RNA: MIR6217 microRNA precursor family
Nucleotides: 220
Stems, first nucleotide, its partner, number of pairs: 001220002006215009016205005022199012037184003041180006050171001052169011065158003069154003074148001083135002085130001086125008096115001101109001
Number, partner (000 for none) and nucleotide at each position: 001220u002219g003000a004000c005000c006215g007214c008213a009212g010211a011210a012209u013208a014207a015000g016205u017204u018203a019202u020201u021000a022199u023198g024197u025196g026195g027194u028193c029192a030191c031190u032189u033188u034000g035000a036000g037184u038183u039182a040000c041180g042179a043178u044177a045176a046175u047000u048000a049000c050171u051000a052169u053168a054167c055166u056165a057164a058163u059162u060161u061160a062159c063000g064000a065158g066157a067156u068000u069154a070153u071152g072000a073000u074148a075000a076000c077000u078000c079000c080000c081000u082000g083135a084134u085130u086125u087124a088123c089122u090121a091120u092119a093118g094000c095000a096115u097000u098000a099000u100000g101109g102000u103000a104000a105000g106000u107000a108000u109101c110000a111000u112000c113000u114000u115096g116000a117000a118093u119092u120091a121090u122089a123088g124087u125086a126000a127000c128000c129000c130085a131000u132000a133000u134084a135083u136000c137000g138000u139000a140000a141000a142000u143000g144000u145000g146000u147000a148074u149000u150000g151000u152071c153070a154069u155000u156067a157066u158065c159062g160061u161060a162059a163058a164057u165056u166055g167054g168053u169052a170000c171050a172000a173000a174000c175046a176045u177044u178043a179042u180041c181000a182039u183038a184037a185000a186000u187000u188033a189032a190031g191030g192029u193028g194027g195026u196025c197024a198023u199022a200000g201020a202019a203018u204017a205016a206000g207014u208013u209012a210011u211010u212009c213008u214007g215006u216000a217000a218000c219002c220001a